Bacterial large subunit ribosomal RNA: a 324-nucleotide part of an RNA from Pelagicoccus mobilis.
[Rfam]
RNA sequence: UGAGUUAAAUCUCUCUAAGGAACUCGGCAAAUUUGCCCCGUAUCUUCGGUAGAAGGGGUGCCCCUUUCGGGGGGUCGCAGUUAAGAGGCGCAACCGACUGUUUAGCAAAAACACAGCUCUCUGCAAAGUCGCAAGACGACGUAUAGGGAGUGACACGUGACCAAUGCAGAAAGGUGAACGUCUGAGGUGAGAGCUUCGGGCCCAAGCCCCUGUGAAUGUCGGCCGUAACUAUAACGGUCCUAAGGUAGCGAAAUUCCUUGUCGGGUAAGUUCCGACCCGCACGAAUCGUGUAACGAGUUGCGCACUGUCUCGGAGAGAUGCUCA
Numbered sequence: 001u002g003a004g005u006u007a008a009a010u011c012u013c014u015c016u017a018a019g020g021a022a023c024u025c026g027g028c029a030a031a032u033u034u035g036c037c038c039c040g041u042a043u044c045u046u047c048g049g050u051a052g053a054a055g056g057g058g059u060g061c062c063c064c065u066u067u068c069g070g071g072g073g074g075u076c077g078c079a080g081u082u083a084a085g086a087g088g089c090g091c092a093a094c095c096g097a098c099u100g101u102u103u104a105g106c107a108a109a110a111a112c113a114c115a116g117c118u119c120u121c122u123g124c125a126a127a128g129u130c131g132c133a134a135g136a137c138g139a140c141g142u143a144u145a146g147g148g149a150g151u152g153a154c155a156c157g158u159g160a161c162c163a164a165u166g167c168a169g170a171a172a173g174g175u176g177a178a179c180g181u182c183u184g185a186g187g188u189g190a191g192a193g194c195u196u197c198g199g200g201c202c203c204a205a206g207c208c209c210c211u212g213u214g215a216a217u218g219u220c221g222g223c224c225g226u227a228a229c230u231a232u233a234a235c236g237g238u239c240c241u242a243a244g245g246u247a248g249c250g251a252a253a254u255u256c257c258u259u260g261u262c263g264g265g266u267a268a269g270u271u272c273c274g275a276c277c278c279g280c281a282c283g284a285a286u287c288g289u290g291u292a293a294c295g296a297g298u299u300g301c302g303c304a305c306u307g308u309c310u311c312g313g314a315g316a317g318a319u320g321c322u323c324a
Stems, first nucleotide, its partner, number of pairs: 001324004009319008018310003035059005044049001060075006076080001088303007095295002099113003116151008124141001128137003154290004159220003164217002166213004173208003180201001182199007221239006240244001250277001260276006